RNA: Purine riboswitch aptamer
Organism: Peribacillus saganii
RNA sequence: AUUGAGAAAAACGUAUACCUUCAUAUAUCUUCGAAAAUAGGGUUCGAAAGUUUCUACCAGAUCACCGUAAAUGAUUUGACUAUGAAGGCGGGUUAAUGGAAU
Dot-bracket structure: .................((((((((....((((((.......)))))).........(((((((.......)))))))..))))))))..............